[Rfam]
RNA sequence: ACGGAAGGCUGGAUGGCUGCUUGGACGGCGCUCCUUUCGGGGGGCUUGUUUGAGAGGAAAGUCCGGACUCCAUGAAGUAACGGUGCCGGGUAACGCCCGGCCAGGGUAACCUGAGGGAUAGCGCCACAGAGAAGAAACCGCCUUCGUUUCGGCGCGGGUAAGGGUGAAACGGUGCGGUAAGAGCGCACCGCGGGUCGGGUAACCGGACCGGCACGGCAAGCCCCACCGGGAGCAAUGCCAAAUAGGGAUGCCGCGCGGGUGUGAUCGAGCAAUCGAUAUCCACGCAGGGACACUUCAGCCUGAGGCAUCCGGGUUGGCAGCUAGAGGCGCGUAGGUAACUGCGGGCUAAGAUGAAUGGUCAUCUAUGUGCACGUCGAGAGCCGUGCAUUGGACAAAAUCCGGCUUAUAGGCCCUCCGUACGC
Numbered sequence: 001a002c003g004g005a006a007g008g009c010u011g012g013a014u015g016g017c018u019g020c021u022u023g024g025a026c027g028g029c030g031c032u033c034c035u036u037u038c039g040g041g042g043g044g045c046u047u048g049u050u051u052g053a054g055a056g057g058a059a060a061g062u063c064c065g066g067a068c069u070c071c072a073u074g075a076a077g078u079a080a081c082g083g084u085g086c087c088g089g090g091u092a093a094c095g096c097c098c099g100g101c102c103a104g105g106g107u108a109a110c111c112u113g114a115g116g117g118a119u120a121g122c123g124c125c126a127c128a129g130a131g132a133a134g135a136a137a138c139c140g141c142c143u144u145c146g147u148u149u150c151g152g153c154g155c156g157g158g159u160a161a162g163g164g165u166g167a168a169a170c171g172g173u174g175c176g177g178u179a180a181g182a183g184c185g186c187a188c189c190g191c192g193g194g195u196c197g198g199g200u201a202a203c204c205g206g207a208c209c210g211g212c213a214c215g216g217c218a219a220g221c222c223c224c225a226c227c228g229g230g231a232g233c234a235a236u237g238c239c240a241a242a243u244a245g246g247g248a249u250g251c252c253g254c255g256c257g258g259g260u261g262u263g264a265u266c267g268a269g270c271a272a273u274c275g276a277u278a279u280c281c282a283c284g285c286a287g288g289g290a291c292a293c294u295u296c297a298g299c300c301u302g303a304g305g306c307a308u309c310c311g312g313g314u315u316g317g318c319a320g321c322u323a324g325a326g327g328c329g330c331g332u333a334g335g336u337a338a339c340u341g342c343g344g345g346c347u348a349a350g351a352u353g354a355a356u357g358g359u360c361a362u363c364u365a366u367g368u369g370c371a372c373g374u375c376g377a378g379a380g381c382c383g384u385g386c387a388u389u390g391g392a393c394a395a396a397a398u399c400c401g402g403c404u405u406a407u408a409g410g411c412c413c414u415c416c417g418u419a420c421g422c
Stems, first nucleotide, its partner, number of pairs: 001418005007412004011407001012363007020054009059405003063402005068232004076301002081228005086100005101115001102113004116223002121221002123217003138163002140159004145154003171189006190212001191210003195206004236319004246310006296302001327346002330343005
Dot-bracket structure: (((((.((((((((((((.(((((((((.................)))))))))....[[[.[[[[[((((....[[...((((((((((.....)))))(((((....)))).)((...(((((............((((((.(((....))).))))..)).......((((((.......))))))((((.((((....)))).))).)..)))..)))))))))))))...((((......((((((............................................(...]])..)))))).....)))).......((.(((((....))))).))..........)))))))..................................]]]]]]]].).)))).)))))....

Rfam assigns this 422-nucleotide sequence from Rhodobacteraceae bacterium HTCC2083 to the family "Bacterial RNase P class A".
The match comes from Rfam's covariance-model search (285 bits).
It is annotated as a ribozyme.